[Rfam]
RNA sequence: GACCGGGCCCUGUGCAAUAGGAACCUAUGAACCCCGCCAGGUCCGGAAGGAAGCAACGGUAAAUAGGCCCUCCUAUGUGCCGCAGGUUCACCUGGUCUCU
Dot-bracket structure: ...((((.(((((((.((((((.(((((.....(((.....(((....))).....)))...)))))...)))))))...))))))....))))......
Numbered sequence: 001g002a003c004c005g006g007g008c009c010c011u012g013u014g015c016a017a018u019a020g021g022a023a024c025c026u027a028u029g030a031a032c033c034c035c036g037c038c039a040g041g042u043c044c045g046g047a048a049g050g051a052a053g054c055a056a057c058g059g060u061a062a063a064u065a066g067g068c069c070c071u072c073c074u075a076u077g078u079g080c081c082g083c084a085g086g087u088u089c090a091c092c093u094g095g096u097c098u099c100u
Stems, first nucleotide, its partner, number of pairs: 004094004009086006015077001017076006024067005034059003042051003
Rfam assigns this 100-nucleotide sequence from Candidatus Manganitrophus noduliformans to the family "Bacterial small signal recognition particle RNA". The signal recognition particle (SRP) is a universally conserved ribonucleoprotein involved in the co-translational targeting of proteins to membranes.